Rfam assigns this 54-nucleotide sequence from Hucho hucho to the family "UnaL2 LINE 3' element". Gene Ontology term of the family: transposition, RNA-mediated. The base pairs follow the family's consensus structure, which is taken from published work. From the family's description: The eel long interspersed element (LINE) UnaL2 and its partner short interspersed element (SINE) share a conserved 3' tail containing a stem-loop that is critical for their retrotransposition. Presumably, the first step of retrotransposition is the recognition of their 3' tails by UnaL2-encoded reverse transcriptase.

RNA sequence: GGGGGCCAGGACUGUAAGUCGCUCUGGAUAAGAGCAUCUGCUAAAUGACAAAAA
Numbered sequence: 001g002g003g004g005g006c007c008a009g010g011a012c013u014g015u016a017a018g019u020c021g022c023u024c025u026g027g028a029u030a031a032g033a034g035c036a037u038c039u040g041c042u043a044a045a046u047g048a049c050a051a052a053a054a
Stems, first nucleotide, its partner, number of pairs: 013043001014041003021035005